This 153-nucleotide RNA from Kalanchoe fedtschenkoi belongs to the Rfam family "Small nucleolar RNA snoR145". Lineage of the source: Eukaryota > Viridiplantae > Tracheophyta > Pentapetalae > Kalanchoe. The family's RNA type in Rfam is H/ACA-box small nucleolar RNA.
[Rfam]
RNA sequence: UAGCGAAGGUCCCAGCAGAGUGGAAUAGACUCAUAGAUGAGGCCACUCUAACACAAAAUAUUUACCUUCGCAUAUUCAAACAUAAGCCUGGUCGUAAGGCGGUCCAGAUUAAUUUUGGUUUCUGGCUCGUCUGUAAACCCUGGCUACAUAAUA
Numbered sequence: 001u002a003g004c005g006a007a008g009g010u011c012c013c014a015g016c017a018g019a020g021u022g023g024a025a026u027a028g029a030c031u032c033a034u035a036g037a038u039g040a041g042g043c044c045a046c047u048c049u050a051a052c053a054c055a056a057a058a059u060a061u062u063u064a065c066c067u068u069c070g071c072a073u074a075u076u077c078a079a080a081c082a083u084a085a086g087c088c089u090g091g092u093c094g095u096a097a098g099g100c101g102g103u104c105c106a107g108a109u110u111a112a113u114u115u116u117g118g119u120u121u122c123u124g125g126c127u128c129g130u131c132u133g134u135a136a137a138c139c140c141u142g143g144c145u146a147c148a149u150a151a152u153a
Stems, first nucleotide, its partner, number of pairs: 003071007011020001013018001023048002030041004086144003090140002098131002101128002104125005